[Rfam]
RNA sequence: CCUCUGGAAAGCGGGGACCCGGGUCCCCCGCCGAAGGUGCAAGCCCGCCCGAGCGGCGGGUGAAGCUCUCAGGCGCCGAUGACAGAGG
Numbered sequence: 001c002c003u004c005u006g007g008a009a010a011g012c013g014g015g016g017a018c019c020c021g022g023g024u025c026c027c028c029c030g031c032c033g034a035a036g037g038u039g040c041a042a043g044c045c046c047g048c049c050c051g052a053g054c055g056g057c058g059g060g061u062g063a064a065g066c067u068c069u070c071a072g073g074c075g076c077c078g079a080u081g082a083c084a085g086a087g088g
Base pairs, nucleotide, nucleotide: 001088002087003086004085005084006083013028014027015026016025030074031073032072033070034069037068039066043061044060045059046058047057048056
The record is an 88-nucleotide sequence from Actinomadura sp. KC345, which matches "Glycine riboswitch aptamer" in Rfam.
The match comes from Rfam's covariance-model search (46 bits).